Description
A member of the RNA family "SAM riboswitch aptamer (S box leader)" from Oryzomonas rubra, 107 nucleotides long. The base pairs follow the family's consensus structure, which is taken from published work. Gene Ontology term of the family: regulation of gene expression. The SAM riboswitch is found upstream of a number of genes which code for proteins involved in methionine or cysteine biosynthesis in Gram-positive bacteria.

[Rfam]
RNA sequence: UUCUUAUCGAGAGCGACCGAGGGACUGGCCCAACGACGUCGCGGCAACCAACCUGCAAGGGUAAGGUGCCAAUUCCAGCGAAACCGCACGGUUUCGGGAGAUAAGGA
Numbered sequence: 001u002u003c004u005u006a007u008c009g010a011g012a013g014c015g016a017c018c019g020a021g022g023g024a025c026u027g028g029c030c031c032a033a034c035g036a037c038g039u040c041g042c043g044g045c046a047a048c049c050a051a052c053c054u055g056c057a058a059g060g061g062u063a064a065g066g067u068g069c070c071a072a073u074u075c076c077a078g079c080g081a082a083a084c085c086g087c088a089c090g091g092u093u094u095c096g097g098g099a100g101a102u103a104a105g106g107a
Stems, first nucleotide, its partner, number of pairs: 001107008013042005021031003025078004043070004048066002050062001052060002074099001079096006
Dot-bracket structure: ((((((((....(((((...(((.[[[[)))......)))))((((.(((.((.....)).)..))))))...(]]]]((((((......))))))..)))))))))